RNA sequence: UUGGAUGAAAUUAAUGUGGAUCCCACACUUUGAAAACGGAUCCCCACAUAAAAUGGUGGAGUCCUCAUUGAUUUCAUCCAA
Numbered sequence: 001u002u003g004g005a006u007g008a009a010a011u012u013a014a015u016g017u018g019g020a021u022c023c024c025a026c027a028c029u030u031u032g033a034a035a036a037c038g039g040a041u042c043c044c045c046a047c048a049u050a051a052a053a054u055g056g057u058g059g060a061g062u063c064c065u066c067a068u069u070g071a072u073u074u075c076a077u078c079c080a081a
Base pairs, nucleotide, nucleotide: 001081002080003079004078005077006076007075008074009073010072011071012070013069014068015067016066018064023059024058025057026055027054029052030051031050032049
RNA: MIR5269 microRNA precursor family